[Rfam]
Annotation: The family of this 185-nucleotide RNA sequence is "malK-I RNA".
RNA sequence: UUAAACUAGAAAGAAAGACUCCACGAUAAAGCUUUCUGUGCAAACAAAGCAAAGGAGGAAAAAAUUCCGCAGGCUUGCGGUGCGGCAGUGUGGAGACCUGCCGUAAUGCGGCGCACUCUUCUACCGGGUGGCUGCGAGGUGAUCGGGCGGAGGCCUGAUCAUCAGAGUCUUAAUAAAAUAUGGCU
Dot-bracket structure: ......(..(.((((((..............)))))).)..)........................[[[[((((((]]]]((((((((.((....))))))))))..(((((.(((...........))))))))..(((((((((((....))))))))))).))))))...............
Numbered sequence: 001u002u003a004a005a006c007u008a009g010a011a012a013g014a015a016a017g018a019c020u021c022c023a024c025g026a027u028a029a030a031g032c033u034u035u036c037u038g039u040g041c042a043a044a045c046a047a048a049g050c051a052a053a054g055g056a057g058g059a060a061a062a063a064a065u066u067c068c069g070c071a072g073g074c075u076u077g078c079g080g081u082g083c084g085g086c087a088g089u090g091u092g093g094a095g096a097c098c099u100g101c102c103g104u105a106a107u108g109c110g111g112c113g114c115a116c117u118c119u120u121c122u123a124c125c126g127g128g129u130g131g132c133u134g135c136g137a138g139g140u141g142a143u144c145g146g147g148c149g150g151a152g153g154c155c156u157g158a159u160c161a162u163c164a165g166a167g168u169c170u171u172a173a174u175a176a177a178a179u180a181u182g183g184c185u
Stems, first nucleotide, its partner, number of pairs: 007042001010039001012037006067080004071170006081105008090097002108135005114130003138163011

The family's RNA type in Rfam is cis-regulatory element. It is one of the family's seed sequences.